Rfam assigns this 53-nucleotide RNA sequence from Rhizobium album to the family "Guanidine-II riboswitch aptamer (mini-ykkC)". The source organism's lineage runs through Bacteria, Pseudomonadati, Pseudomonadota, Hyphomicrobiales and Rhizobium.
[Rfam]
RNA sequence: AAGCGAGGACGGCCUCCCCCUUCAUCGGGUUAAGUCCGCCCGGGACGGCCCGG
Numbered sequence: 001a002a003g004c005g006a007g008g009a010c011g012g013c014c015u016c017c018c019c020c021u022u023c024a025u026c027g028g029g030u031u032a033a034g035u036c037c038g039c040c041c042g043g044g045a046c047g048g049c050c051c052g053g
Stems, first nucleotide, its partner, number of pairs: 003018001005016004040053005

The family's consensus secondary structure is taken from published work.